Record summary: A member of the RNA family "Small nucleolar RNA Z107/R87" from Zingiber officinale, 101 nucleotides long.
[Rfam]
RNA sequence: GAUUGCCGUGACGACUCUGGAAAAUUCAAGCUCAACAGACCGGAUAGCAGGUCUCUCAUCGAGGGAUCUGUAUGUCGAUUAUCCCGCUGAACUGAGCAAUC
Numbered sequence: 001g002a003u004u005g006c007c008g009u010g011a012c013g014a015c016u017c018u019g020g021a022a023a024a025u026u027c028a029a030g031c032u033c034a035a036c037a038g039a040c041c042g043g044a045u046a047g048c049a050g051g052u053c054u055c056u057c058a059u060c061g062a063g064g065g066a067u068c069u070g071u072a073u074g075u076c077g078a079u080u081a082u083c084c085c086g087c088u089g090a091a092c093u094g095a096g097c098a099a100u101c
Base pairs, nucleotide, nucleotide: 001101002100003099004098005097006096
Dot-bracket structure: ((((((.........................................................................................))))))